[Rfam]
RNA sequence: UUGGUUUAAAUCAUUAUGGAUCUACACUUUGAAAAUUAAACCAACAAAAAUUGGUGGGACAUACAUUGAUUUGAUCAAA
Numbered sequence: 001u002u003g004g005u006u007u008a009a010a011u012c013a014u015u016a017u018g019g020a021u022c023u024a025c026a027c028u029u030u031g032a033a034a035a036u037u038a039a040a041c042c043a044a045c046a047a048a049a050a051u052u053g054g055u056g057g058g059a060c061a062u063a064c065a066u067u068g069a070u071u072u073g074a075u076c077a078a079a
Stems, first nucleotide, its partner, number of pairs: 001079002004076001006074008015065001017063002022057003025053002028050003

This 79-nucleotide RNA sequence from Medicago truncatula belongs to the Rfam family "MIR5269 microRNA precursor family". It scores 66 bits against the family's covariance model. The source organism's lineage runs through Eukaryota, Tracheophyta, Fabaceae, Trifolieae and Medicago. Gene Ontology terms of the family: miRNA-mediated post-transcriptional gene silencing and RISC complex.